Annotation:
Shown here is a 34-nucleotide RNA from Eptatretus burgeri, a member of the family "Iron response element I". Rfam links the family to the GO term response to iron ion. Taxonomically the source falls in Eptatretus (Eukaryota, Cyclostomata, Myxini, Eptatretinae).
[Rfam]
RNA sequence: UGUUCCCGCUUCAACAGUGUUUGAACGGUACAGG
Numbered sequence: 001u002g003u004u005c006c007c008g009c010u011u012c013a014a015c016a017g018u019g020u021u022u023g024a025a026c027g028g029u030a031c032a033g034g
Stems, first nucleotide, its partner, number of pairs: 001032003005028002008026001010025005015019001
A search with the family's covariance model found it, with a score of 36 bits.